[Rfam]
The family of this 98-nucleotide RNA sequence from Enterovibrio coralii is "Qrr RNA". Lineage of the source: Bacteria > Pseudomonadati > Pseudomonadota > Vibrionaceae > Enterovibrio. Rfam links the family to the GO term quorum sensing. It is annotated as a small RNA. The base pairs follow the family's consensus structure, which is taken from published work. From the family's description: This family represents a set of small RNAs (the Qrr RNAs) that are thought to be involved in the regulation of quorum sensing in Vibrio species. It is believed that these RNAs, guided by a protein, Hfq, can mediate the destabilisation of the quorum-sensing master regulators LuxR/HapR mRNAs.
RNA sequence: UGACCUUCGGGGUCACCUAGCCAACUGACGUUGUUUGUGAGCACUUCGUUCACUGAAACAAGACAGCCAACCGACUCUUUCCGGUUGGCUUUUUUUUU
Numbered sequence: 001u002g003a004c005c006u007u008c009g010g011g012g013u014c015a016c017c018u019a020g021c022c023a024a025c026u027g028a029c030g031u032u033g034u035u036u037g038u039g040a041g042c043a044c045u046u047c048g049u050u051c052a053c054u055g056a057a058a059c060a061a062g063a064c065a066g067c068c069a070a071c072c073g074a075c076u077c078u079u080u081c082c083g084g085u086u087g088g089c090u091u092u093u094u095u096u097u098u
Stems, first nucleotide, its partner, number of pairs: 001015006032063001034061001037053006067088007